[Rfam]
RNA: Bradyrhizobiaceae sRNA BjrC174
Organism: Nitrobacter hamburgensis
RNA sequence: GUCACAAGAACGUCAGUCAAAAUCAUAAUGCAGCCCAAUUUCCGUCAAGCAACCGCCCUGCUGGAUUGCGAGAAAACAGUCACUGCGAUGGCCCGGUCCUUUCGGUGCCGGAUCCUCAGCCCCCAGCCCCCCGGGGCCAUCAGGAUCGGGCCUAUUCGCGGGGAACUAAAACUCCAAGACCGCUCGGGACCGGCGAAAGCUGGUCCUUUU
Numbered sequence: 001g002u003c004a005c006a007a008g009a010a011c012g013u014c015a016g017u018c019a020a021a022a023u024c025a026u027a028a029u030g031c032a033g034c035c036c037a038a039u040u041u042c043c044g045u046c047a048a049g050c051a052a053c054c055g056c057c058c059u060g061c062u063g064g065a066u067u068g069c070g071a072g073a074a075a076a077c078a079g080u081c082a083c084u085g086c087g088a089u090g091g092c093c094c095g096g097u098c099c100u101u102u103c104g105g106u107g108c109c110g111g112a113u114c115c116u117c118a119g120c121c122c123c124c125a126g127c128c129c130c131c132c133g134g135g136g137c138c139a140u141c142a143g144g145a146u147c148g149g150g151c152c153u154a155u156u157c158g159c160g161g162g163g164a165a166c167u168a169a170a171a172c173u174c175c176a177a178g179a180c181c182g183c184u185c186g187g188g189a190c191c192g193g194c195g196a197a198a199g200c201u202g203g204u205c206c207u208u209u210u
Base pairs, nucleotide, nucleotide: 037167039052042049083161084160085159086158087157088156090152091151092150093149094148095147096146097145098144099143100142104138105137106136108134109133110132111131119127120126187206188205189204190203191202192201193200194199